[Rfam]
RNA: traJ-II RNA
Organism: Nitrosomonas sp. Nm84
RNA sequence: GGGCAAGAUAUGUGGAGAUGGCCAUCUCCACCACAACUUAUUCGCACUUUGUGCUCAACGUUGAUCUUGCUCUUCGAGGAA
Numbered sequence: 001g002g003g004c005a006a007g008a009u010a011u012g013u014g015g016a017g018a019u020g021g022c023c024a025u026c027u028c029c030a031c032c033a034c035a036a037c038u039u040a041u042u043c044g045c046a047c048u049u050u051g052u053g054c055u056c057a058a059c060g061u062u063g064a065u066c067u068u069g070c071u072c073u074u075c076g077a078g079g080a081a
Base pairs, nucleotide, nucleotide: 001072002071003070004069005068006067007066008065009064012031013030014029015028016027017026019024034063035062036061037060044054045053046052047051